A member of the RNA family "Aggregatibacter sRNA 22" from Rodentibacter trehalosifermentans, 101 nucleotides long.
The match comes from Rfam's covariance-model search (64 bits).
Lineage of the source: Bacteria > Pseudomonadota > Pasteurellales > Pasteurellaceae > Rodentibacter.
It is annotated as a small RNA.

[Rfam]
RNA sequence: AAAAUAAGACAAAAUCCAACGGAUUUUGAAUGUAGGCUUUGUCGACAGCCCCGAAGGGGUGAGCAAGUCAGCUAUGCUGAAUUGCGAAUAACAGCGAUUUA
Numbered sequence: 001a002a003a004a005u006a007a008g009a010c011a012a013a014a015u016c017c018a019a020c021g022g023a024u025u026u027u028g029a030a031u032g033u034a035g036g037c038u039u040u041g042u043c044g045a046c047a048g049c050c051c052c053g054a055a056g057g058g059g060u061g062a063g064c065a066a067g068u069c070a071g072c073u074a075u076g077c078u079g080a081a082u083u084g085c086g087a088a089u090a091a092c093a094g095c096g097a098u099u100u101a
Base pairs, nucleotide, nucleotide: 010028011027012026013025014024015023016022017021031047032046033045035043036042037041048060049059050058051057052056063085064084065083066082068080069079070078071077089101090100091099